[Rfam]
ZMP/ZTP riboswitch aptamer (pfl RNA motif): an 83-nucleotide sequence from Paenibacillus methanolicus. NCBI's taxonomy places the organism under Bacteria, Bacillota, Caryophanales, Paenibacillaceae, Paenibacillus.
RNA sequence: GGUUUCCGAUGUGACUGGCGACGAAAGUGGAUCAAACCACGGUGGAGCAUCGGAAUAUACGGCCGGUCGCCUGGGCAAAGAGC
Number, nucleotide and partner (000 for none) at each position: 001g000002g000003u000004u055005u054006c053007c052008g051009a050010u049011g048012u047013g000014a000015c044016u000017g071018g070019c069020g068021a067022c000023g000024a000025a000026a000027g040028u039029g038030g037031a000032u000033c000034a000035a000036a000037c030038c029039a028040c027041g000042g000043u000044g015045g000046a000047g012048c011049a010050u009051c008052g007053g006054a005055a004056u000057a000058u000059a000060c000061g000062g076063c075064c074065g000066g000067u021068c020069g019070c018071c017072u000073g000074g064075g063076c062077a000078a000079a000080g000081a000082g000083c000